Rfam assigns this 289-nucleotide RNA from Serinus canaria to the family "Metazoan signal recognition particle RNA". The source organism's lineage runs through Eukaryota, Bilateria, Tetrapoda, Sauropsida and Serinus. By type it is a non-coding RNA gene. The base pairs follow the family's consensus structure, which is taken from published work.
[Rfam]
RNA sequence: GUUACGGUGGCUUGUGCCUGUAAUCCAAGCUCCAGGGAGGCUGAGGUUGGUGGAUCGCUGAGCCUGGGGCUUCUGGGCUGCAGGGAGCUGUGCCGAGCGGGCGUCCAAGCUAAGGCCAGCAUCAAUAUGGUGGCCCUCGGGGAGCCGGGGGCCACCAGGUCGCCCAAGGAGGGGUGAACCGGCCCAGGUCGGAGACGGAGCAGGUCAAAGCUCCCGUGGCGGUCAGUAGCGGGACCGGGAGCCCUAUGAUAACUUACCCAAUGGCGCCAGCAGAUGUCGCCAAGCUCAG
Numbered sequence: 001g002u003u004a005c006g007g008u009g010g011c012u013u014g015u016g017c018c019u020g021u022a023a024u025c026c027a028a029g030c031u032c033c034a035g036g037g038a039g040g041c042u043g044a045g046g047u048u049g050g051u052g053g054a055u056c057g058c059u060g061a062g063c064c065u066g067g068g069g070c071u072u073c074u075g076g077g078c079u080g081c082a083g084g085g086a087g088c089u090g091u092g093c094c095g096a097g098c099g100g101g102c103g104u105c106c107a108a109g110c111u112a113a114g115g116c117c118a119g120c121a122u123c124a125a126u127a128u129g130g131u132g133g134c135c136c137u138c139g140g141g142g143a144g145c146c147g148g149g150g151g152c153c154a155c156c157a158g159g160u161c162g163c164c165c166a167a168g169g170a171g172g173g174g175u176g177a178a179c180c181g182g183c184c185c186a187g188g189u190c191g192g193a194g195a196c197g198g199a200g201c202a203g204g205u206c207a208a209a210g211c212u213c214c215c216g217u218g219g220c221g222g223u224c225a226g227u228a229g230c231g232g233g234a235c236c237g238g239g240a241g242c243c244c245u246a247u248g249a250u251a252a253c254u255u256a257c258c259c260a261a262u263g264g265c266g267c268c269a270g271c272a273g274a275u276g277u278c279g280c281c282a283a284g285c286u287c288a289g
Stems, first nucleotide, its partner, number of pairs: 001018001003016005024038003043287003047283006054277002058273003064270004069265003074260004079256002085250001099244004104239001105233002109230004114224004120218003123162001125160002128157013163169002171214005181206004189198003